[Rfam]
Overview
Shown here is an 85-nucleotide RNA sequence from Calcarius ornatus, a member of the family "mir-145 microRNA precursor family". It scores 90 bits against the family's covariance model.
RNA sequence: GCCGUGUCCUCAGGGUCCAGUUUUCCCAGGAAUCCCUUGGCACACGGAUGGGGAUUCCUGGAAAUACUGUUCUUGGGGCCACGGC
Numbered sequence: 001g002c003c004g005u006g007u008c009c010u011c012a013g014g015g016u017c018c019a020g021u022u023u024u025c026c027c028a029g030g031a032a033u034c035c036c037u038u039g040g041c042a043c044a045c046g047g048a049u050g051g052g053g054a055u056u057c058c059u060g061g062a063a064a065u066a067c068u069g070u071u072c073u074u075g076g077g078g079c080c081a082c083g084g085c
Base pairs, nucleotide, nucleotide: 018069019068020067021066023064024063026061027060028059029058030057031056032055033054034053035052036051037050
The literature on the family includes a 2005 paper in Genes Dev by Chen et al., "The developmental miRNA profiles of zebrafish as determined by small RNA cloning". The organism belongs to Calcarius, within Eukaryota. Its family is annotated with miRNA-mediated post-transcriptional gene silencing and RISC complex in the Gene Ontology.